[Rfam]
RNA sequence: GAGUCAGUCUGUGUAGCAAGCCUAAGCCCUUCUGGGGUGGAGGCGGAGCGAAAGCAAGUCCGAAUAGGGCGCUAAGUUGCACGGGCUGAACCCGAAGCGGUGGUGAUCUACCCAUGGCCAGGUCGAAGCGUCUGUAAUAGGACGUGGAGGACCGAACUGGUGGACCUUGAGACGUCCUCGGAUGAGCUGUGGGUAGGGGUGAAAGGCUAAUCAAACCCCGUAAUAGCUGGUU
Number, nucleotide and partner (000 for none) at each position: 001g000002a000003g000004u000005c088006a087007g086008u085009c084010u083011g082012u081013g080014u079015a078016g077017c076018a000019a000020g044021c043022c042023u041024a000025a000026g038027c037028c036029c000030u000031u000032c000033u000034g000035g000036g028037g027038u026039g000040g000041a023042g022043g021044c020045g000046g000047a000048g055049c054050g000051a000052a000053a000054g049055c048056a000057a000058g070059u069060c068061c067062g000063a000064a000065u000066a000067g061068g060069g059070c058071g000072c000073u000074a000075a000076g017077u016078u015079g014080c013081a012082c011083g010084g009085g008086c007087u006088g005089a000090a000091c230092c229093c000094g227095a000096a000097g000098c220099g219100g218101u000102g217103g216104u215105g000106a000107u000108c196109u195110a194111c193112c192113c191114a190115u189116g188117g187118c186119c184120a000121g153122g152123u151124c150125g000126a000127a000128g145129c144130g143131u142132c141133u140134g000135u000136a000137a000138u000139a000140g133141g132142a131143c130144g129145u128146g000147g000148a000149g000150g124151a123152c122153c121154g000155a000156a000157c181158u180159g179160g000161u000162g177163g176164a175165c174166c000167u000168u000169g000170a000171g000172a000173c000174g165175u164176c163177c162178u000179c159180g158181g157182a000183u000184g119185a000186g118187c117188u116189g115190u114191g113192g112193g111194u110195a109196g108197g000198g208199g207200u206201g000202a000203a000204a000205g000206g200207c199208u198209a000210a000211u000212c000213a000214a000215a104216c103217c102218c100219c099220g098221u000222a000223a000224u000225a000226g000227c094228u000229g092230g091231u000232u000
Shown here is a 232-nucleotide part of an RNA from Prosthecobacter gellanilyticus, a member of the family "Bacterial large subunit ribosomal RNA". Pairs were carried over by alignment from the consensus structure, which is taken from published work.